RNA: Plant signal recognition particle RNA
RNA sequence: GCCGAGCCCGGUAACGCCGGCUUGUAACCCGAGUGGGGGCAAUAAGGUGGUGGGAUGUUGUGUUCAGCCCGAAUAGGUUGGGUGCGGUCGUGCUAGACUUGGCUUGCCCGUUCCAAGUCAGGCAGCUGAGCUAUGUGGCCCGAACGAAGGCCCGAGCCAUCUGGGAUCCUAAAGCGGAGGACACCGCGUCAGGCUGGUUUCACAGAGCAGCGAUAACCUCCCGCUCUUGACGGUGGAAGGAUAACAGGCCGGUGCACGCCACACUCGCCGUACCUAUCGGGCUAACACUGACCAAACCACCACUUUU
Numbered sequence: 001g002c003c004g005a006g007c008c009c010g011g012u013a014a015c016g017c018c019g020g021c022u023u024g025u026a027a028c029c030c031g032a033g034u035g036g037g038g039g040c041a042a043u044a045a046g047g048u049g050g051u052g053g054g055a056u057g058u059u060g061u062g063u064u065c066a067g068c069c070c071g072a073a074u075a076g077g078u079u080g081g082g083u084g085c086g087g088u089c090g091u092g093c094u095a096g097a098c099u100u101g102g103c104u105u106g107c108c109c110g111u112u113c114c115a116a117g118u119c120a121g122g123c124a125g126c127u128g129a130g131c132u133a134u135g136u137g138g139c140c141c142g143a144a145c146g147a148a149g150g151c152c153c154g155a156g157c158c159a160u161c162u163g164g165g166a167u168c169c170u171a172a173a174g175c176g177g178a179g180g181a182c183a184c185c186g187c188g189u190c191a192g193g194c195u196g197g198u199u200u201c202a203c204a205g206a207g208c209a210g211c212g213a214u215a216a217c218c219u220c221c222c223g224c225u226c227u228u229g230a231c232g233g234u235g236g237a238a239g240g241a242u243a244a245c246a247g248g249c250c251g252g253u254g255c256a257c258g259c260c261a262c263a264c265u266c267g268c269c270g271u272a273c274c275u276a277u278c279g280g281g282c283u284a285a286c287a288c289u290g291a292c293c294a295a296a297c298c299a300c301c302a303c304u305u306u307u
Stems, first nucleotide, its partner, number of pairs: 001040003004023005010017001028037003044306010056294002058291003061287004068281005075275004080266005086260002089258004094254002099252008108240002111238005117231006124225003128168002131165002135161001136159004141154002145150001169174001176221005187212003194205003